[Rfam]
RNA sequence: GCAUCAAUUGGCGAUGGAGUCCGCCUUUAACCGCUUGUAAAGCUGAUGACUCCUUCUAUAGG
Numbered sequence: 001g002c003a004u005c006a007a008u009u010g011g012c013g014a015u016g017g018a019g020u021c022c023g024c025c026u027u028u029a030a031c032c033g034c035u036u037g038u039a040a041a042g043c044u045g046a047u048g049a050c051u052c053c054u055u056c057u058a059u060a061g062g
Base pairs, nucleotide, nucleotide: 010025011024012023013022016053017052018051019050020049021048033043034042035041
The record is a 62-nucleotide sequence, which matches "Fluoride riboswitch aptamer (crcB RNA motif)" in Rfam.
Pairs were carried over by alignment from the consensus structure, which is taken from published work.